[Rfam]
RNA: GcvB RNA
RNA sequence: ACUUCCUAAGCCGGAACGAAAAGUUACAGAGUUUAGUUAUUUUGGAACUUUUGGCUUUGUGGUUGUGAUGUUGUGUUUGCAAGUUGUCUGGAAACACCAGACUUUGUAGCUUUUGCUACUAUUUUCACUUCCUGUACAUUUACCCUGUCUGUCCAUAGUGAUUUUUGUUAUGCACCGCCUAAUACGCGGUGCUUUUUUUA
Numbered sequence: 001a002c003u004u005c006c007u008a009a010g011c012c013g014g015a016a017c018g019a020a021a022a023g024u025u026a027c028a029g030a031g032u033u034u035a036g037u038u039a040u041u042u043u044g045g046a047a048c049u050u051u052u053g054g055c056u057u058u059g060u061g062g063u064u065g066u067g068a069u070g071u072u073g074u075g076u077u078u079g080c081a082a083g084u085u086g087u088c089u090g091g092a093a094a095c096a097c098c099a100g101a102c103u104u105u106g107u108a109g110c111u112u113u114u115g116c117u118a119c120u121a122u123u124u125u126c127a128c129u130u131c132c133u134g135u136a137c138a139u140u141u142a143c144c145c146u147g148u149c150u151g152u153c154c155a156u157a158g159u160g161a162u163u164u165u166u167g168u169u170a171u172g173c174a175c176c177g178c179c180u181a182a183u184a185c186g187c188g189g190u191g192c193u194u195u196u197u198u199u200a
Stems, first nucleotide, its partner, number of pairs: 009056004015052002021050005028042001030041003086102006106119005136168003172192007